Rfam assigns this 297-nucleotide sequence from Tuber melanosporum to the family "Group I catalytic intron".

RNA sequence: UUUCUUAGGUCAAUUCUGUAGGCCUAUUUUAAAUGGAAACAUUAAAAAUUAAAAACAAAAUUAACUAUAUGCUGAAAACUCCUAAAGUUUUAAGUACUUAUUAAGUAAAAAUCUUAAAUAUAUUACUAUGGAUAAUCAGCAGGAAAUUAAAACUUUCUUAAAAUGGAGUUUGAUCCUCAGAGACUAUGCGUUAUACAUUUUGUAUUUCGAUUUUAUUUUAGGCCUGGGACAUGCACUGUGCGCCGGAUCAAAUAAAUAUGGAUGAAGAUAUAGUCCAAUCAAUAUGGAAACAUAUUU
Dot-bracket structure: ..((................)).........(((......)))..................[[.[....((((((....(((...............................................)))...))))))((...((((....((.(....).))...)))).))...(.(((((...].]]....(((..((((................................................)))).)))........)))))).....(((((....)))))..
Numbered sequence: 001u002u003u004c005u006u007a008g009g010u011c012a013a014u015u016c017u018g019u020a021g022g023c024c025u026a027u028u029u030u031a032a033a034u035g036g037a038a039a040c041a042u043u044a045a046a047a048a049u050u051a052a053a054a055a056c057a058a059a060a061u062u063a064a065c066u067a068u069a070u071g072c073u074g075a076a077a078a079c080u081c082c083u084a085a086a087g088u089u090u091u092a093a094g095u096a097c098u099u100a101u102u103a104a105g106u107a108a109a110a111a112u113c114u115u116a117a118a119u120a121u122a123u124u125a126c127u128a129u130g131g132a133u134a135a136u137c138a139g140c141a142g143g144a145a146a147u148u149a150a151a152a153c154u155u156u157c158u159u160a161a162a163a164u165g166g167a168g169u170u171u172g173a174u175c176c177u178c179a180g181a182g183a184c185u186a187u188g189c190g191u192u193a194u195a196c197a198u199u200u201u202g203u204a205u206u207u208c209g210a211u212u213u214u215a216u217u218u219u220a221g222g223c224c225u226g227g228g229a230c231a232u233g234c235a236c237u238g239u240g241c242g243c244c245g246g247a248u249c250a251a252a253u254a255a256a257u258a259u260g261g262a263u264g265a266a267g268a269u270a271u272a273g274u275c276c277a278a279u280c281a282a283u284a285u286g287g288a289a290a291c292a293u294a295u296u297u
Stems, first nucleotide, its partner, number of pairs: 003022002032043003062193002065190001070141006080132003142176002147173004155166002158163001180276001182275005198262003203258004282295005
A reference for the family is Cech (1990), "Self-splicing of group I introns", Annu Rev Biochem. Rfam describes the family as follows. Group I catalytic introns are large self-splicing ribozymes. Pairs were carried over by alignment from the consensus structure, which is taken from published work. The source organism's lineage runs through Eukaryota, Opisthokonta, Ascomycota, Tuberaceae and Tuber.